[Rfam]
RNA sequence: GAUGCUGGACCGGCAGGCACCUCGGACACAGCUGCUCUCCUGCGCCUGUGACACUGAGGCAAAGAGGAAGUGGCUAUUUCUAUACUCAGUGCUCAGAACAGUGAGCACUAAGAAUGGUCUGUAGCCGAACAUGC
Numbered sequence: 001g002a003u004g005c006u007g008g009a010c011c012g013g014c015a016g017g018c019a020c021c022u023c024g025g026a027c028a029c030a031g032c033u034g035c036u037c038u039c040c041u042g043c044g045c046c047u048g049u050g051a052c053a054c055u056g057a058g059g060c061a062a063a064g065a066g067g068a069a070g071u072g073g074c075u076a077u078u079u080c081u082a083u084a085c086u087c088a089g090u091g092c093u094c095a096g097a098a099c100a101g102u103g104a105g106c107a108c109u110a111a112g113a114a115u116g117g118u119c120u121g122u123a124g125c126c127g128a129a130c131a132u133g134c
Base pairs, nucleotide, nucleotide: 003061004060005059006058007055008054023048024047025046072126073125074124080117081116082115085112086111090107091106092105093104094103095102